Rfam assigns this 217-nucleotide RNA from Carica papaya to the family "Plant small nucleolar RNA U3". From the family's description: Small nucleolar RNAs (snoRNAs) are involved in the processing and modification of rRNA in the nucleolus. There are two main classes of snoRNAs: the box C/D class, and the box H/ACA class. U3 snoRNA is a member of the box C/D class. Indeed, the box C/D element is a subset of the six short sequence elements found in all U3 snoRNAs, namely boxes A, A', B, C, C', and D. The U3 snoRNA secondary structure is characterised by a small 5' domain (with boxes A and A'), and a larger 3' domain (with boxes B, C, C', and D), the two domains being linked by a single-stranded hinge. Boxes B and C form the B/C motif, which appears to be exclusive to U3 snoRNAs, and boxes C' and D form the C'/D motif. The latter is functionally similar to the C/D motifs found in other snoRNAs. The 5' domain and the hinge region act as a pre-rRNA-binding domain. The 3' domain has conserved protein-binding sites. Both the box B/C and box C'/D motifs are sufficient for nuclear retention of U3 snoRNA. The box C'/D motif is also necessary for nucleolar localisation, stability and hyper-methylation of U3 snoRNA. Both box B/C and C'/D motifs are involved in specific protein interactions and are necessary for the rRNA processing functions of U3 snoRNA. The organism belongs to Carica, within Eukaryota. A reference for the family is Speckmann et al. (1999), "Nuclear retention elements of U3 small nucleolar RNA", Mol Cell Biol. Rfam classes the family as a C/D-box small nucleolar RNA.

[Rfam]
RNA sequence: ACGACCUUACUUGAACAGGAUCUGUUCUAUAGGUUCGUACCUCUGUUUCCUGGAGUUCGAAGGAGACAGGAUCUCAAGUCUGGCGGAUGAAUCGUGACCGUGUGAUCAGAGCGUGAUUAAUGGCAGAAGCGGUUCUCGAACCGUUGAUGCUGUAGAGGAUCGUUCUCAGUUGGGUUUGAUCCUGACUGGGGGUGGUCACCCGGUUAUCUGACAGACC
Numbered sequence: 001a002c003g004a005c006c007u008u009a010c011u012u013g014a015a016c017a018g019g020a021u022c023u024g025u026u027c028u029a030u031a032g033g034u035u036c037g038u039a040c041c042u043c044u045g046u047u048u049c050c051u052g053g054a055g056u057u058c059g060a061a062g063g064a065g066a067c068a069g070g071a072u073c074u075c076a077a078g079u080c081u082g083g084c085g086g087a088u089g090a091a092u093c094g095u096g097a098c099c100g101u102g103u104g105a106u107c108a109g110a111g112c113g114u115g116a117u118u119a120a121u122g123g124c125a126g127a128a129g130c131g132g133u134u135c136u137c138g139a140a141c142c143g144u145u146g147a148u149g150c151u152g153u154a155g156a157g158g159a160u161c162g163u164u165c166u167c168a169g170u171u172g173g174g175u176u177u178g179a180u181c182c183u184g185a186c187u188g189g190g191g192g193u194g195g196u197c198a199c200c201c202g203g204u205u206a207u208c209u210g211a212c213a214g215a216c217c
Stems, first nucleotide, its partner, number of pairs: 001038002003035001005033003013027006043069004048064004078216005097204004102199007110164004120153006128145007166189009